[Rfam]
RNA: LOOT RNA
RNA sequence: GACCUAAACCGUCAGCCCUCCAAAAGCAGGCGGCAUGGUCGCAAAUCGUUGACUACAGAAAACCCGUCAUUCAGGGCGUAGUCAACGUUGCAGAGGGAAACUUCUGUAGAGCCGCAAGGCUC
Numbered sequence: 001g002a003c004c005u006a007a008a009c010c011g012u013c014a015g016c017c018c019u020c021c022a023a024a025a026g027c028a029g030g031c032g033g034c035a036u037g038g039u040c041g042c043a044a045a046u047c048g049u050u051g052a053c054u055a056c057a058g059a060a061a062a063c064c065c066g067u068c069a070u071u072c073a074g075g076g077c078g079u080a081g082u083c084a085a086c087g088u089u090g091c092a093g094a095g096g097g098a099a100a101c102u103u104c105u106g107u108a109g110a111g112c113c114g115c116a117a118g119g120c121u122c
Base pairs, nucleotide, nucleotide: 001040002039003038004037009033010032011031012030013029015027047087048086049085050084051083052082053081054080055079056078063076064075065074089108090107091106092105093104094103095102096101109122110121111120112119113118